[Rfam]
RNA: mir-63 microRNA precursor family
Organism: Callorhinus ursinus
RNA sequence: AUCGCCAAGGCAGGUGCUCCACAGGAUGUCCCACCCAGGCCUGAGGGCCAUGGGCUCCCUAUGCAUAGCCCAUGGCCCUCAGGCCUGGGUGGGACAUCCUGUGGAGCACCUGCCUUGGCGAU
Number, nucleotide and partner (000 for none) at each position: 001a122002u121003c120004g119005c118006c000007a116008a115009g114010g113011c112012a111013g110014g109015u000016g000017c000018u105019c104020c103021a102022c101023a000024g099025g098026a097027u096028g095029u094030c093031c092032c091033a090034c000035c088036c087037a086038g085039g084040c083041c082042u000043g080044a079045g078046g077047g000048c075049c074050a073051u072052g071053g070054g069055c000056u000057c068058c000059c000060u000061a000062u000063g000064c000065a000066u000067a000068g057069c054070c053071c052072a051073u050074g049075g048076c000077c046078c045079u044080c043081a000082g041083g040084c039085c038086u037087g036088g035089g000090u033091g032092g031093g030094a029095c028096a027097u026098c025099c024100u000101g022102u021103g020104g019105a018106g000107c000108a000109c014110c013111u012112g011113c010114c009115u008116u007117g000118g005119c004120g003121a002122u001